[Rfam]
RNA: Small nucleolar RNA SNORD77
RNA sequence: AUACUAUGAUGUUUGCAUAGUUCAGCAGAUUGAAUUAUGAAGAGAUCUACCAUUUGUCUGGUGUU
Numbered sequence: 001a002u003a004c005u006a007u008g009a010u011g012u013u014u015g016c017a018u019a020g021u022u023c024a025g026c027a028g029a030u031u032g033a034a035u036u037a038u039g040a041a042g043a044g045a046u047c048u049a050c051c052a053u054u055u056g057u058c059u060g061g062u063g064u065u
Base pairs, nucleotide, nucleotide: 003064004063006038007037008036009035010034013028014027015026016025043055044054045053046052